This 75-nucleotide RNA from Phytomonas sp. EM1 belongs to the Rfam family "Trypanosomatid snoRNA TB6Cs1H4". On this family, see Liang et al., RNA 2005: "A genome-wide analysis of C/D and H/ACA-like small nucleolar RNAs in Trypanosoma brucei reveals a trypanosome-specific pattern of rRNA modification". The match comes from Rfam's covariance-model search (72 bits). The organism belongs to Phytomonas, within Eukaryota.
RNA sequence: CGCCUCAUCUUCAAGGUCCCUUGGCGGCCGUAUACUUUUGCUUUGCCGUUUCAUAGGAUACCCAAUGAGGCUAGA
Numbered sequence: 001c002g003c004c005u006c007a008u009c010u011u012c013a014a015g016g017u018c019c020c021u022u023g024g025c026g027g028c029c030g031u032a033u034a035c036u037u038u039u040g041c042u043u044u045g046c047c048g049u050u051u052c053a054u055a056g057g058a059u060a061c062c063c064a065a066u067g068a069g070g071c072u073a074g075a
Base pairs, nucleotide, nucleotide: 002071003070004069005068006067007066016059017058018057019056024049025048026047027046028045